[Rfam]
RNA sequence: CUCGCCGAGGAGCGCUGCAGCAGUGUCCCUGCCAGGCUCGGUGACGGUCGCAUAUACAACGGCGCUCUCCAUAG
Numbered sequence: 001c002u003c004g005c006c007g008a009g010g011a012g013c014g015c016u017g018c019a020g021c022a023g024u025g026u027c028c029c030u031g032c033c034a035g036g037c038u039c040g041g042u043g044a045c046g047g048u049c050g051c052a053u054a055u056a057c058a059a060c061g062g063c064g065c066u067c068u069c070c071a072u073a074g
Base pairs, nucleotide, nucleotide: 002044003043004042005041006040007039008038021031022030023029
Rfam assigns this 74-nucleotide RNA from a Steroidobacteraceae bacterium to the family "SAH (S-adenosyl-L-homocysteine) riboswitch aptamer". The base pairs follow the family's consensus structure, which is taken from published work. It scores 60 bits against the family's covariance model. The organism belongs to Steroidobacteraceae, within Bacteria.